Shown here is an 82-nucleotide RNA sequence from Larus smithsonianus, a member of the family "mir-199 microRNA precursor family".
The base pairs follow the family's consensus structure, which was predicted with RNAalifold.
Taxonomically the source falls in Larus (Eukaryota, Deuterostomia, Craniata, Teleostomi).
Gene Ontology terms of the family: RISC complex and miRNA-mediated post-transcriptional gene silencing.
Rfam's curators write: This family consists of the microRNA (miRNA) precursor mir-199 which appears to be specific to humans.
[Rfam]
RNA sequence: GCCCAGCCUGCCCAGUGUUCAGACUACCUGUUCAGGAGGGUUCGGCGCUGUACAGUAGUCUGCACAUUGGUUAGAUCGGGUU
Dot-bracket structure: ...........(((((((.(((((((.((((.((..............)).))))))))))).)))))))............